Shown here is a 93-nucleotide sequence from Caviibacterium pharyngocola, a member of the family "TPP riboswitch aptamer (THI element)".
Rfam links the family to the GO term thiamine pyrophosphate binding.
The organism belongs to Caviibacterium, within Bacteria.
[Rfam]
RNA sequence: UGCCAUUAGUCGGGGUGCUUUCUAGGAAGCUGAGAUGAUACCCGUGAACCUGAUACAGCUAAUACUGACGUAGGAAACUAAUUAUGAAUGCUA
Numbered sequence: 001u002g003c004c005a006u007u008a009g010u011c012g013g014g015g016u017g018c019u020u021u022c023u024a025g026g027a028a029g030c031u032g033a034g035a036u037g038a039u040a041c042c043c044g045u046g047a048a049c050c051u052g053a054u055a056c057a058g059c060u061a062a063u064a065c066u067g068a069c070g071u072a073g074g075a076a077a078c079u080a081a082u083u084a085u086g087a088a089u090g091c092u093a
Stems, first nucleotide, its partner, number of pairs: 006081005011044004016038001017030005049074004056067003